[Rfam]
RNA: Whalefall-1 RNA
Organism: Gracilimonas mengyeensis
RNA sequence: UCCCUCUUUGAAGAGGGACCGGAAAUGAGCUUGCUCAUUUGCAGGGGGA
Numbered sequence: 001u002c003c004c005u006c007u008u009u010g011a012a013g014a015g016g017g018a019c020c021g022g023a024a025a026u027g028a029g030c031u032u033g034c035u036c037a038u039u040u041g042c043a044g045g046g047g048g049a
Stems, first nucleotide, its partner, number of pairs: 001018007021042001023040007